[Rfam]
The record is an 88-nucleotide RNA sequence from Equus asinus, which matches "Small nucleolar RNA SNORD35" in Rfam. U35 is a C/D box snoRNA located in intron 6 of ribosomal protein L13A and intron 3 of ribosomal protein S11 in humans and at homologous positions in mouse and chicken ribosomal protein genes. On this family, see Nicoloso et al., J Mol Biol 1996: "Intron-encoded, antisense small nucleolar RNAs: the characterization of nine novel species points to their direct role as guides for the 2'-O-ribose methylation of rRNAs". The match comes from Rfam's covariance-model search (87 bits). Its family is annotated with nucleolus and RNA processing in the Gene Ontology.

Nucleotides: 088
Base pairs, nucleotide, nucleotide: 001083002082003081004080
Number, partner (000 for none) and nucleotide at each position: 001083g002082g003081c004080a005000g006000a007000u008000g009000a010000u011000g012000u013000c014000u015000g016000u017000c018000c019000u020000c021000a022000c023000g024000a025000u026000g027000g028000u029000c030000u031000g032000c033000a034000g035000a036000u037000g038000c039000c040000u041000g042000c043000c044000a045000c046000g047000g048000g049000c050000a051000c052000u053000g054000c055000u056000g057000a058000g059000a060000a061000a062000g063000c064000c065000g066000c067000u068000u069000g070000g071000c072000a073000c074000a075000g076000c077000u078000g079000a080004u081003g082002c083001c084000a085000g086000a087000a088000a